A member of the RNA family "Small nucleolar RNA Z155" from Artemisia annua, 77 nucleotides long. Rfam classes the family as a C/D-box small nucleolar RNA. Its family is annotated with RNA processing and nucleolus in the Gene Ontology.
[Rfam]
RNA sequence: UUUUGAGGUGAUGAGAAAGUUGUCGAAUAUAUCAUGUCGAUCGAAAAUACUUCCAGACUACAAUUAUCUGAUCAAAA
Numbered sequence: 001u002u003u004u005g006a007g008g009u010g011a012u013g014a015g016a017a018a019g020u021u022g023u024c025g026a027a028u029a030u031a032u033c034a035u036g037u038c039g040a041u042c043g044a045a046a047a048u049a050c051u052u053c054c055a056g057a058c059u060a061c062a063a064u065u066a067u068c069u070g071a072u073c074a075a076a077a
Stems, first nucleotide, its partner, number of pairs: 001077006
Dot-bracket structure: ((((((.................................................................))))))